[Rfam]
RNA: Small nucleolar RNA Z199
RNA sequence: GAUCAAGUGAUGGGCAAUUAACUACUCUGACAUCAUGAUUGGAGUUAUUCUCCAAUGAUUCCCAAGUUUUAAGUCUGAUGAUU
Numbered sequence: 001g002a003u004c005a006a007g008u009g010a011u012g013g014g015c016a017a018u019u020a021a022c023u024a025c026u027c028u029g030a031c032a033u034c035a036u037g038a039u040u041g042g043a044g045u046u047a048u049u050c051u052c053c054a055a056u057g058a059u060u061c062c063c064a065a066g067u068u069u070u071a072a073g074u075c076u077g078a079u080g081a082u083u
Stems, first nucleotide, its partner, number of pairs: 001082001003081003040054005
Dot-bracket structure: (.(((..................................(((((.....)))))........................)))).